[Rfam]
RNA sequence: GAGUUACUCCUCAUCGGCAAGGGUAAGUGAUUCAGUCACGUACCCGGAGCGAAAGCGAGUCUGAAAGGGCGAUUGAGUCGGUGGGGGUAGACGCGAAACUUAGUGAUCUACCCAUGGCCAGGUUGAAGUUGUGGUAACACACAAUGGAGGACCGAACCGAUAAACGUUGAAAAGUUUCCGGAUGAGCUGUGGGUAGGGGUGAAAGGCUAAUCAAACUGAGAAAUAGCUCGUA
Numbered sequence: 001g002a003g004u005u006a007c008u009c010c011u012c013a014u015c016g017g018c019a020a021g022g023g024u025a026a027g028u029g030a031u032u033c034a035g036u037c038a039c040g041u042a043c044c045c046g047g048a049g050c051g052a053a054a055g056c057g058a059g060u061c062u063g064a065a066a067g068g069g070c071g072a073u074u075g076a077g078u079c080g081g082u083g084g085g086g087g088u089a090g091a092c093g094c095g096a097a098a099c100u101u102a103g104u105g106a107u108c109u110a111c112c113c114a115u116g117g118c119c120a121g122g123u124u125g126a127a128g129u130u131g132u133g134g135u136a137a138c139a140c141a142c143a144a145u146g147g148a149g150g151a152c153c154g155a156a157c158c159g160a161u162a163a164a165c166g167u168u169g170a171a172a173a174g175u176u177u178c179c180g181g182a183u184g185a186g187c188u189g190u191g192g193g194u195a196g197g198g199g200u201g202a203a204a205g206g207c208u209a210a211u212c213a214a215a216c217u218g219a220g221a222a223a224u225a226g227c228u229c230g231u232a
Stems, first nucleotide, its partner, number of pairs: 005089003009086010021045004027039003049056002059070004092230002095227001099220006108196011119184001121153004128145006157181003162177004198208003

A member of the RNA family "Bacterial large subunit ribosomal RNA" from Algoriphagus machipongonensis, 232 nucleotides of a longer RNA. The source organism's lineage runs through Bacteria, Cytophagia, Cytophagales, Cyclobacteriaceae and Algoriphagus. The match comes from Rfam's covariance-model search (2738 bits). Rfam links the family to the GO terms ribosome and structural constituent of ribosome.